The family of this 101-nucleotide RNA from Keratinibaculum paraultunense is "TPP riboswitch aptamer (THI element)". Rfam links the family to the GO term thiamine pyrophosphate binding.
RNA sequence: UGUUAACACUAGGGGAGCCAAUAGGCUGAGAGGGAAAUAUAUUCCGACCCUUUAAACCUGAACUAGGUAAUUCUAGCGUAGGAAAGUGUAAAUUAAUCGCU
Numbered sequence: 001u002g003u004u005a006a007c008a009c010u011a012g013g014g015g016a017g018c019c020a021a022u023a024g025g026c027u028g029a030g031a032g033g034g035a036a037a038u039a040u041a042u043u044c045c046g047a048c049c050c051u052u053u054a055a056a057c058c059u060g061a062a063c064u065a066g067g068u069a070a071u072u073c074u075a076g077c078g079u080a081g082g083a084a085a086g087u088g089u090a091a092a093u094u095a096a097u098c099g100c101u
Stems, first nucleotide, its partner, number of pairs: 006089005011051004017026003033045004057082004063076004
Dot-bracket structure: .....(((((((((..(((....)))......((((.....))))..)))).....((((..((((......))))..))))..)))))............